Shown here is a 169-nucleotide RNA from Microbacterium ginsengisoli, a member of the family "M-box riboswitch aptamer (ykoK leader)". For this family Rfam cites "New RNA motifs suggest an expanded scope for riboswitches in bacterial genetic control" (Barrick et al., Proc Natl Acad Sci U S A, 2004). M-box riboswitch, also know as ykoK leader is described as a metaloregulatory RNA that sense divalent metals and function as a genetic control element of genes related to divalent metal transport in bacteria. It was first reported upstream of the B.subtilis ykoK gene and genes with related functions in other bacteria. The family has 159 seed sequences and 1,095 matches in Rfam 15.1.
RNA sequence: GGUGCUGAUCGUUAGCUGAGGCUCCUUCGCGGAUACAAGCCAGCGACCCCGAACGUCGAAAGACGCCCCGGGUCAGGACAGGCCCUCCCGGCUUAAGGGGUGGCCCCGAUUGGCUCCCGUUGACGGGUUCACGCCGCGAAGUGCCAAAGGUCUUACGAGGAGAGGUGCA
Number, nucleotide and partner (000 for none) at each position: 001g000002g000003u000004g000005c165006u164007g000008a000009u161010c160011g156012u155013u096014a000015g151016c150017u149018g000019a000020g145021g144022c143023u000024c000025c141026u140027u139028c138029g137030c136031g135032g134033a000034u000035a000036c000037a000038a000039g114040c113041c112042a111043g110044c000045g074046a073047c072048c071049c070050c000051g000052a000053a000054c065055g064056u063057c062058g000059a000060a000061a000062g057063a056064c055065g054066c000067c000068c000069c000070g049071g048072g047073u046074c045075a000076g000077g000078a000079c000080a000081g105082g104083c103084c102085c000086u000087c099088c098089c097090g000091g000092c000093u000094u000095a000096a013097g089098g088099g087100g000101u000102g084103g083104c082105c081106c000107c000108g000109a000110u043111u042112g041113g040114c039115u000116c127117c126118c125119g000120u000121u000122g000123a000124c000125g118126g117127g116128u000129u000130c000131a000132c000133g000134c032135c031136g030137c029138g028139a027140a026141g025142u000143g022144c021145c020146a000147a000148a000149g017150g016151u015152c000153u000154u000155a012156c011157g000158a000159g000160g010161a009162g000163a000164g006165g005166u000167g000168c000169a000